[Rfam]
RNA: Purine riboswitch aptamer
Organism: Salipaludibacillus neizhouensis
RNA sequence: UAUUAUAAAUUUUAUUUAUUUCGUAUAUUUUUGGGAAUAGGGCCCGAAAGUUUCUACCGAGCUGCCGUAAAUAGCUCUACUACGAAUGGUAAAAGAAGGUUU
Numbered sequence: 001u002a003u004u005a006u007a008a009a010u011u012u013u014a015u016u017u018a019u020u021u022c023g024u025a026u027a028u029u030u031u032u033g034g035g036a037a038u039a040g041g042g043c044c045c046g047a048a049a050g051u052u053u054c055u056a057c058c059g060a061g062c063u064g065c066c067g068u069a070a071a072u073a074g075c076u077c078u079a080c081u082a083c084g085a086a087u088g089g090u091a092a093a094a095g096a097a098g099g100u101u102u
Stems, first nucleotide, its partner, number of pairs: 020086006029049007059077006